The record is a 64-nucleotide RNA from Latrobevirus FNU1, which matches "RAGATH-18 RNA" in Rfam.
A search with the family's covariance model found it, with a score of 65 bits.
The organism belongs to Latrobevirus FNU1, within Viruses.
The family's consensus secondary structure is taken from published work.
Rfam's curators write: Actinobacteria, Firmicutes, Fusobacteria, Thermotogae (1 example).
Rfam classes the family as a small RNA.

RNA sequence: UCUGUGGAGAGUUAUACCAAACUAGAGUAGUAGAAAUAUGAAAUAGGACUUAAUGAAGCAGAAA
Numbered sequence: 001u002c003u004g005u006g007g008a009g010a011g012u013u014a015u016a017c018c019a020a021a022c023u024a025g026a027g028u029a030g031u032a033g034a035a036a037u038a039u040g041a042a043a044u045a046g047g048a049c050u051u052a053a054u055g056a057a058g059c060a061g062a063a064a
Stems, first nucleotide, its partner, number of pairs: 001062005009051005022046003030039003
Dot-bracket structure: (((((...(((((........(((.....(((....)))....))))))))......)))))..